Background: A member of the RNA family "SAM (S-adenosyl methionine) riboswitch aptamer" from Cellulomonas triticagri, 100 nucleotides long. The match comes from Rfam's covariance-model search (70 bits). For this family Rfam cites "The aptamer core of SAM-IV riboswitches mimics the ligand-binding site of SAM-I riboswitches" (Weinberg et al., RNA, 2008). Rfam describes the family as follows. SAM-IV is a mRNA element that regulates gene expression via direct sensing of S-adenosylmethionine (SAM or AdoMet).

RNA sequence: GGUCACGAGACCCAGUGCGAAGCCCCGGCUCGCUGGGCAGCAACCCCACGUCACGGCGGGGUGCUCCGGGAGAUGACCUGGCCGCCGGCCGGGGCCCGUC
Numbered sequence: 001g002g003u004c005a006c007g008a009g010a011c012c013c014a015g016u017g018c019g020a021a022g023c024c025c026c027g028g029c030u031c032g033c034u035g036g037g038c039a040g041c042a043a044c045c046c047c048a049c050g051u052c053a054c055g056g057c058g059g060g061g062u063g064c065u066c067c068g069g070g071a072g073a074u075g076a077c078c079u080g081g082c083c084g085c086c087g088g089c090c091g092g093g094g095c096c097c098g099u100c
Base pairs, nucleotide, nucleotide: 001078002077003076004075009038011037012036013035014034015033016032021030022029039065040064041063044061045060046059049055084100086098087097088096090094